[Rfam]
RNA sequence: GUGCAUGUAUUUGUCUCAAUCCACAUGUGUUGAAGUGGAUUAGAGUGAAAUUAAACUAAGUUUCAUGCCAAUCCACUCCGACACAUAUGGAUUGAAAUAGAUACAUGC
Numbered sequence: 001g002u003g004c005a006u007g008u009a010u011u012u013g014u015c016u017c018a019a020u021c022c023a024c025a026u027g028u029g030u031u032g033a034a035g036u037g038g039a040u041u042a043g044a045g046u047g048a049a050a051u052u053a054a055a056c057u058a059a060g061u062u063u064c065a066u067g068c069c070a071a072u073c074c075a076c077u078c079c080g081a082c083a084c085a086u087a088u089g090g091a092u093u094g095a096a097a098u099a100g101a102u103a104c105a106u107g108c
Base pairs, nucleotide, nucleotide: 004107005106006105007104008103009102010101011100012099013098014097016095017094018093019092020091021090022089023088025086026085027084028083029082030081031080032079035076036075037074038073039072040071041070043068045066046065047064
Rfam assigns this 108-nucleotide RNA from Miscanthus lutarioriparius to the family "MIR5565 microRNA precursor family".
The organism belongs to Miscanthus, within Eukaryota.
A search with the family's covariance model found it, with a score of 88 bits.
The base pairs follow the family's consensus structure, which was predicted with RNAalifold.